[Rfam]
RNA: Clostridiales-2 RNA
Organism: Alkaliphilus oremlandii
RNA sequence: AUAAAAUAGGGGUUGUAGAGGAUGAAACCCCCUGCCACCUUAAGAAGAUACCGAGGCUGUAAAUCAGCCGUUGAAGGAAAC
Numbered sequence: 001a002u003a004a005a006a007u008a009g010g011g012g013u014u015g016u017a018g019a020g021g022a023u024g025a026a027a028c029c030c031c032c033u034g035c036c037a038c039c040u041u042a043a044g045a046a047g048a049u050a051c052c053g054a055g056g057c058u059g060u061a062a063a064u065c066a067g068c069c070g071u072u073g074a075a076g077g078a079a080a081c
Stems, first nucleotide, its partner, number of pairs: 015035004020030002055069005